[Rfam]
RNA: Small nucleolar RNA SNORD124
RNA sequence: UGAUUACCAGGAAGGGAUGAUGUUUCAGUUAACCCAAGAAAAGGAUUCUGAGCCUCAGAGCUCUGAGGAGCUACUCGGUUCCUGACCUUCCUUGAGGCAAA
Numbered sequence: 001u002g003a004u005u006a007c008c009a010g011g012a013a014g015g016g017a018u019g020a021u022g023u024u025u026c027a028g029u030u031a032a033c034c035c036a037a038g039a040a041a042a043g044g045a046u047u048c049u050g051a052g053c054c055u056c057a058g059a060g061c062u063c064u065g066a067g068g069a070g071c072u073a074c075u076c077g078g079u080u081c082c083u084g085a086c087c088u089u090c091c092u093u094g095a096g097g098c099a100a101a
Stems, first nucleotide, its partner, number of pairs: 009092007